[Rfam]
RNA sequence: ACAAGCACUGUGAUGAAGUAUUCCGGAUGUAAAAUUACACUUUGGCCGAGAGCGCAAGCCCAAAAGGGUUCAUGUGGAUAUUUCCGUUGCCUUCCUUCUGAUCUGCUAU
Numbered sequence: 001a002c003a004a005g006c007a008c009u010g011u012g013a014u015g016a017a018g019u020a021u022u023c024c025g026g027a028u029g030u031a032a033a034a035u036u037a038c039a040c041u042u043u044g045g046c047c048g049a050g051a052g053c054g055c056a057a058g059c060c061c062a063a064a065a066g067g068g069u070u071c072a073u074g075u076g077g078a079u080a081u082u083u084c085c086g087u088u089g090c091c092u093u094c095c096u097u098c099u100g101a102u103c104u105g106c107u108a109u
Stems, first nucleotide, its partner, number of pairs: 004107002024086004

The family of this 109-nucleotide RNA sequence from Microthyrium microscopicum is "Small nucleolar RNA Z13/snr52".